Shown here is a 267-nucleotide RNA from Laceyella tengchongensis, a member of the family "Bacterial large signal recognition particle RNA".

[Rfam]
RNA sequence: CCGCGCUAGAUGGGGAGCUGGCGGUGCCCUGUAACCCGUAAUCCGCCUUAACGGGGUUGAAUUCCUAUCUGAGGCGCAUCUUGUGCGAGGUCUGGUCUGGAUGAUCAGUGUUGAUAAUUGGGUCCUACGCAACGAGGCCUUCCGAACCGUGUCAGGUCCUGACGGAAGCAGCACUAAGGGAGAAUCCUCGUGUGCCGUAGGGGUGCCUGGUUUGAGCUGAUGAUCCAGUGCCCGCUCGGGCUAGGUGCGUCAAGGAUAGGUGCGCGG
Numbered sequence: 001c002c003g004c005g006c007u008a009g010a011u012g013g014g015g016a017g018c019u020g021g022c023g024g025u026g027c028c029c030u031g032u033a034a035c036c037c038g039u040a041a042u043c044c045g046c047c048u049u050a051a052c053g054g055g056g057u058u059g060a061a062u063u064c065c066u067a068u069c070u071g072a073g074g075c076g077c078a079u080c081u082u083g084u085g086c087g088a089g090g091u092c093u094g095g096u097c098u099g100g101a102u103g104a105u106c107a108g109u110g111u112u113g114a115u116a117a118u119u120g121g122g123u124c125c126u127a128c129g130c131a132a133c134g135a136g137g138c139c140u141u142c143c144g145a146a147c148c149g150u151g152u153c154a155g156g157u158c159c160u161g162a163c164g165g166a167a168g169c170a171g172c173a174c175u176a177a178g179g180g181a182g183a184a185u186c187c188u189c190g191u192g193u194g195c196c197g198u199a200g201g202g203g204u205g206c207c208u209g210g211u212u213u214g215a216g217c218u219g220a221u222g223a224u225c226c227a228g229u230g231c232c233c234g235c236u237c238g239g240g241c242u243a244g245g246u247g248c249g250u251c252a253a254g255g256a257u258a259g260g261u262g263c264g265c266g267g
Base pairs, nucleotide, nucleotide: 001267002266003265004264005263006262009058010057011056012030013029014028015027017025018024019023035055036054037053038052039051064260065259066258067257068256069255070254073251074250075249076248077247080244081243083241084240086238087237088236089235094231097228098227099226100225101224104221105220107218108217109216116212117211118210119209120208121207122206123205124201125200126199127198128197129196130192131191133190134189135188136187137186139182140181141180142179143178149174150173151172152171157166158165159164
By type it is a non-coding RNA gene.
It scores 208 bits against the family's covariance model.
The signal recognition particle (SRP) is a universally conserved ribonucleoprotein involved in the co-translational targeting of proteins to membranes.